[Rfam]
RNA: Ascomycota telomerase RNA, nucleotides 948 to 1115
Organism: Ilyonectria sp. MPI-CAGE-AT-0026
RNA sequence: CCUACUGUCAGGUACCGAACGGUUCUGACAGGUCCCUCGGUUUCAUCUUGAAAAGGAUGGCUUGAGAUGAUAGGGCGGUUUUUGCGGAUGUCUUUUGUCCGCCCGUUAAUGCCCUCCUUUGCUGCUCUUGCGAGCACGGUGGAGAGGAAACAAAAACCAAUCCUUGUU
Number, nucleotide and partner (000 for none) at each position: 001c000002c000003u000004a000005c000006u030007g029008u028009c027010a026011g025012g024013u000014a023015c022016c021017g000018a000019a000020c000021g016022g015023u014024u012025c011026u010027g009028a008029c007030a006031g000032g000033u000034c000035c069036c066037u065038c064039g063040g062041u060042u000043u000044c059045a058046u057047c056048u000049u054050g000051a000052a000053a000054a049055g000056g047057a046058u045059g044060g041061c000062u040063u039064g038065a037066g036067a000068u000069g035070a000071u000072a000073g000074g000075g000076c000077g000078g000079u000080u000081u000082u000083u000084g000085c000086g000087g162088a161089u160090g157091u156092c000093u155094u154095u153096u152097g151098u150099c000100c000101g000102c000103c000104c000105g000106u000107u000108a000109a000110u000111g000112c147113c146114c144115u143116c142117c141118u000119u000120u000121g140122c139123u138124g137125c000126u000127c132128u000129u000130g000131c000132g127133a000134g000135c000136a000137c124138g123139g122140u121141g117142g116143a115144g114145a000146g113147g112148a000149a000150a098151c097152a096153a095154a094155a093156a091157c090158c000159a000160a089161u088162c087163c000164u000165u000166g000167u000168u000